[Rfam]
RNA sequence: CCCGGGUAUCGCGACUGGCGCAGCAUCUGAAGGUGGAAUCGACCACCGGGGAGCGACCUCGACCGACCGCACCGCGCGCCUGGGUGCACGGU
Numbered sequence: 001c002c003c004g005g006g007u008a009u010c011g012c013g014a015c016u017g018g019c020g021c022a023g024c025a026u027c028u029g030a031a032g033g034u035g036g037a038a039u040c041g042a043c044c045a046c047c048g049g050g051g052a053g054c055g056a057c058c059u060c061g062a063c064c065g066a067c068c069g070c071a072c073c074g075c076g077c078g079c080c081u082g083g084g085u086g087c088a089c090g091g092u
Stems, first nucleotide, its partner, number of pairs: 003061004009056004015050002017080005033046004069087005
Rfam assigns this 92-nucleotide sequence from Virgisporangium aliadipatigenens to the family "ZMP/ZTP riboswitch aptamer (pfl RNA motif)". The family's consensus secondary structure is taken from published work. Taxonomically the source falls in Virgisporangium (Bacteria, Actinomycetota, Actinomycetes, Micromonosporales).